[Rfam]
RNA: Group II catalytic intron D1-D4-1
Organism: Betaproteobacteria bacterium MOLA814
RNA sequence: CGCUGUGCUGGGUAACCGGUGCAGUGAUUCAGCAGAAGUCAGCAAAAGUCAGCAGAUGGCAUAGUAGCCACAUGCCCAUCGUAAUGGUUGGGACACGGCGACGGCC
Numbered sequence: 001c002g003c004u005g006u007g008c009u010g011g012g013u014a015a016c017c018g019g020u021g022c023a024g025u026g027a028u029u030c031a032g033c034a035g036a037a038g039u040c041a042g043c044a045a046a047a048g049u050c051a052g053c054a055g056a057u058g059g060c061a062u063a064g065u066a067g068c069c070a071c072a073u074g075c076c077c078a079u080c081g082u083a084a085u086g087g088u089u090g091g092g093a094c095a096c097g098g099c100g101a102c103g104g105c106c
Stems, first nucleotide, its partner, number of pairs: 001026002004023008038057003058106003067099003076091003